[Rfam]
RNA: bZIP non canonical Hac1/Xbp1 intron
Organism: Vespula pensylvanica
RNA sequence: CGGUUGUCCUGUACCUUCACUGGGAUCUGCAGUAUCCCCACAAAACCCUCUGCCGCAGGGUGGGACAGUACAGUCG
Numbered sequence: 001c002g003g004u005u006g007u008c009c010u011g012u013a014c015c016u017u018c019a020c021u022g023g024g025a026u027c028u029g030c031a032g033u034a035u036c037c038c039c040a041c042a043a044a045a046c047c048c049u050c051u052g053c054c055g056c057a058g059g060g061u062g063g064g065a066c067a068g069u070a071c072a073g074u075c076g
Base pairs, nucleotide, nucleotide: 001076002075003074004073005072006071007070009068010067011066012065022038023037024036025035026034045061046060047059048058049057